[Rfam]
RNA: Bacterial small subunit ribosomal RNA, nucleotides 834 to 1422
RNA sequence: AGAGGGUCUUGAAAACCAGCAGUGAAGCAUGUUGUUUAAUGUGAUGAUCCGCACAAAAUCUUACCACUCCUUGAAUGUUACACAGGCGUUGCAUGGCUGUCUUCAGUUCGUGUCGUGAGAUGUAAGGUUAAGUCCGCAUAACGAACAAAACCCUUGCAAUUAGUUAAUUUCUAAUUGAGUAUCCAGUGACAAACUGGAAUAAUUAGGACUAAGACAAGCCCUCAUGGCCCUUAUGGAGUGGGCUACAGACGUGCUGCUAGGGGGAAUACAAAAGGAUCCAAUAAGGUAACUUGGAGGUAAUCCUCAAAUUUCCCCUUUGUGAAUUGAGCUCUGUAACUCGAGCUCAUGAAUUAGGAAUUGCUAGUAAUCGCGAAUCACCACGUCGCGGUGAAAUUAAAGCUUCAAGAUCUACUAACUGCCUGUCACGGGCUGGGAGUAAGCUAUACCCGAAGUUGUUGAUUUUCUAUAGAGUCAUUAUUAAUUUUAAUAAUAGAUAUCUGUAGAAAUAGACAUCCAAGGAUAGUAAACGACUGGUCUGAAGUCAUAACAAGGUAGCCGUUCGGGAACGAGUGGCUGAAUGGUUAUUACC
Numbered sequence: 001a002g003a004g005g006g007u008c009u010u011g012a013a014a015a016c017c018a019g020c021a022g023u024g025a026a027g028c029a030u031g032u033u034g035u036u037u038a039a040u041g042u043g044a045u046g047a048u049c050c051g052c053a054c055a056a057a058a059u060c061u062u063a064c065c066a067c068u069c070c071u072u073g074a075a076u077g078u079u080a081c082a083c084a085g086g087c088g089u090u091g092c093a094u095g096g097c098u099g100u101c102u103u104c105a106g107u108u109c110g111u112g113u114c115g116u117g118a119g120a121u122g123u124a125a126g127g128u129u130a131a132g133u134c135c136g137c138a139u140a141a142c143g144a145a146c147a148a149a150a151c152c153c154u155u156g157c158a159a160u161u162a163g164u165u166a167a168u169u170u171c172u173a174a175u176u177g178a179g180u181a182u183c184c185a186g187u188g189a190c191a192a193a194c195u196g197g198a199a200u201a202a203u204u205a206g207g208a209c210u211a212a213g214a215c216a217a218g219c220c221c222u223c224a225u226g227g228c229c230c231u232u233a234u235g236g237a238g239u240g241g242g243c244u245a246c247a248g249a250c251g252u253g254c255u256g257c258u259a260g261g262g263g264g265a266a267u268a269c270a271a272a273a274g275g276a277u278c279c280a281a282u283a284a285g286g287u288a289a290c291u292u293g294g295a296g297g298u299a300a301u302c303c304u305c306a307a308a309u310u311u312c313c314c315c316u317u318u319g320u321g322a323a324u325u326g327a328g329c330u331c332u333g334u335a336a337c338u339c340g341a342g343c344u345c346a347u348g349a350a351u352u353a354g355g356a357a358u359u360g361c362u363a364g365u366a367a368u369c370g371c372g373a374a375u376c377a378c379c380a381c382g383u384c385g386c387g388g389u390g391a392a393a394u395u396a397a398a399g400c401u402u403c404a405a406g407a408u409c410u411a412c413u414a415a416c417u418g419c420c421u422g423u424c425a426c427g428g429g430c431u432g433g434g435a436g437u438a439a440g441c442u443a444u445a446c447c448c449g450a451a452g453u454u455g456u457u458g459a460u461u462u463u464c465u466a467u468a469g470a471g472u473c474a475u476u477a478u479u480a481a482u483u484u485u486a487a488u489a490a491u492a493g494a495u496a497u498c499u500g501u502a503g504a505a506a507u508a509g510a511c512a513u514c515c516a517a518g519g520a521u522a523g524u525a526a527a528c529g530a531c532u533g534g535u536c537u538g539a540a541g542u543c544a545u546a547a548c549a550a551g552g553u554a555g556c557c558g559u560u561c562g563g564g565a566a567c568g569a570g571u572g573g574c575u576g577a578a579u580g581g582u583u584a585u586u587a588c589c
Stems, first nucleotide, its partner, number of pairs: 001413002003410003007407007019361005024257001026255008034246002040055004064241007076082002085230002088228004094224002096219003099215004106146006112121003126135002152207003157177007182198006261315006273304003278297002283292003322351001325346007367389007416551001418548001421544002426538008436528002440524005446519002452514001454512004459507003464503007553576010